[Rfam]
RNA sequence: GCCGCGCCUAGGCUGAUCCCCGAACCCCAGGCGCUCCCCCUGGCUGGCGCGGCACUCAUCAGGG
Numbered sequence: 001g002c003c004g005c006g007c008c009u010a011g012g013c014u015g016a017u018c019c020c021c022g023a024a025c026c027c028c029a030g031g032c033g034c035u036c037c038c039c040c041u042g043g044c045u046g047g048c049g050c051g052g053c054a055c056u057c058a059u060c061a062g063g064g
Stems, first nucleotide, its partner, number of pairs: 001053008011021002027043005036064003
This 64-nucleotide sequence from Leptothrix cholodnii belongs to the Rfam family "int-alpA RNA". The family has 167 seed sequences and 577 matches in Rfam 15.1. About the family: Acidobacteria (1 example), Planctomycetes (1 example), Proteobacteria. The family's RNA type in Rfam is small RNA. Lineage of the source: Bacteria > Pseudomonadati > Betaproteobacteria > Burkholderiales > Leptothrix cholodnii.